Source information:
A member of the RNA family "MIR6217 microRNA precursor family" from Miscanthus lutarioriparius, 225 nucleotides long. The match comes from Rfam's covariance-model search (144 bits).

RNA sequence: AAGCCAUAGAAUAACUUAUUAUGUGGCCACUUUAAGUUACAAUAAUUACCAUGCUAAUUUACGAGAUCACAAGAACUCCUUACUAAGUAAUUUACUAUAACAUUAUCGUAAAUAUCACCGUGAGUUGUAGUAACACGAGUAUCGUAAAUACAUAUUCAUGUUAUCGUAAAUUGGUACAAAUAUUAUCGUAAAUCAAGGGUCAUAGAAUAAGUUAUUCUAUGGCCA
Numbered sequence: 001a002a003g004c005c006a007u008a009g010a011a012u013a014a015c016u017u018a019u020u021a022u023g024u025g026g027c028c029a030c031u032u033u034a035a036g037u038u039a040c041a042a043u044a045a046u047u048a049c050c051a052u053g054c055u056a057a058u059u060u061a062c063g064a065g066a067u068c069a070c071a072a073g074a075a076c077u078c079c080u081u082a083c084u085a086a087g088u089a090a091u092u093u094a095c096u097a098u099a100a101c102a103u104u105a106u107c108g109u110a111a112a113u114a115u116c117a118c119c120g121u122g123a124g125u126u127g128u129a130g131u132a133a134c135a136c137g138a139g140u141a142u143c144g145u146a147a148a149u150a151c152a153u154a155u156u157c158a159u160g161u162u163a164u165c166g167u168a169a170a171u172u173g174g175u176a177c178a179a180a181u182a183u184u185a186u187c188g189u190a191a192a193u194c195a196a197g198g199g200u201c202a203u204a205g206a207a208u209a210a211g212u213u214a215u216u217c218u219a220u221g222g223c224c225a
Base pairs, nucleotide, nucleotide: 003223004222005221006220007219008218009217010216011215012214013213014212015211016210017209018208019207020206022204023203024202025201026200027199028198031197032196033195037191038190039189040188042186043185044184045183046182052176053175054174055173056172057171058170059169060168061167062166065165066164067163069161070160071159073156074155080147081146082145083144087142088141089140091138092137093132094131095130096129097128098127099126100125101124103122108116
The source organism's lineage runs through Eukaryota, Tracheophyta, Petrosaviidae, commelinids and Miscanthus. Pairs were carried over by alignment from the consensus structure, which was predicted with RNAalifold.